Rfam assigns this 91-nucleotide sequence from Ornithorhynchus anatinus to the family "Y RNA". Y RNAs are components of the Ro ribonucleoprotein particle (Ro RNP), in association with Ro60 and La proteins. The Y RNAs and Ro60 and La proteins are well conserved, but the function of the Ro RNP is not known. In humans the RNA component can be one of four small RNAs -- hY1, hY3, hY4 and hY5. Pairs were carried over by alignment from the consensus structure, which is taken from published work. NCBI's taxonomy places the organism under Eukaryota, Chordata, Prototheria, Monotremata, Ornithorhynchus.
[Rfam]
RNA sequence: AGUUGGUCCGAGAGUUGUGGGUUAUUGUUACAUUUGAUUCGAAUGGAACAUUGUCUCCCCCCACAACUGAGUUUGACUGGCUUUGCUUUUC
Number, nucleotide and partner (000 for none) at each position: 001a082002g081003u080004u079005g078006g077007u076008c075009c000010g074011a073012g000013a000014g000015u069016u065017g064018u063019g062020g061021g060022u000023u000024a000025u000026u050027g049028u048029u000030a000031c045032a000033u000034u000035u000036g000037a000038u000039u000040c000041g000042a000043a000044u000045g031046g000047a000048a028049c027050a026051u000052u000053g000054u000055c000056u000057c000058c000059c000060c021061c020062c019063a018064c017065a016066a000067c000068u000069g015070a000071g000072u000073u011074u010075g008076a007077c006078u005079g004080g003081c002082u001083u000084u000085g000086c000087u000088u000089u000090u000091c000